[Rfam]
RNA sequence: UCAACGUGAGUACUUUCCGCACGACAGGAGCGGGGGACCCAAUCUUGUGCCGGUGAGAGCCGGCUUGGGGUGAAGCCGCCUGCCGGUUCCCGUGACGUCGUGUCACGCGGAGCCGCCCGCGGCCGGGCACUUUCCGGCCCGAACCCGACAGCUCACCUCGUAGGCGUCGGAGAGGAGCACC
Numbered sequence: 001u002c003a004a005c006g007u008g009a010g011u012a013c014u015u016u017c018c019g020c021a022c023g024a025c026a027g028g029a030g031c032g033g034g035g036g037a038c039c040c041a042a043u044c045u046u047g048u049g050c051c052g053g054u055g056a057g058a059g060c061c062g063g064c065u066u067g068g069g070g071u072g073a074a075g076c077c078g079c080c081u082g083c084c085g086g087u088u089c090c091c092g093u094g095a096c097g098u099c100g101u102g103u104c105a106c107g108c109g110g111a112g113c114c115g116c117c118c119g120c121g122g123c124c125g126g127g128c129a130c131u132u133u134c135c136g137g138c139c140c141g142a143a144c145c146c147g148a149c150a151g152c153u154c155a156c157c158u159c160g161u162a163g164g165c166g167u168c169g170g171a172g173a174g175g176a177g178c179a180c181c
Base pairs, nucleotide, nucleotide: 001028002027030161031160032159033158034157035156040067041066068146069145070144076122077121078120079119125140126139127138128137

Background
c-di-AMP riboswitch aptamer (ydaO/yuaA leader): a 181-nucleotide sequence from Streptomyces lonarensis. Lineage of the source: Bacteria > Bacillati > Kitasatosporales > Streptomycetaceae > Streptomyces. Pairs were carried over by alignment from the consensus structure.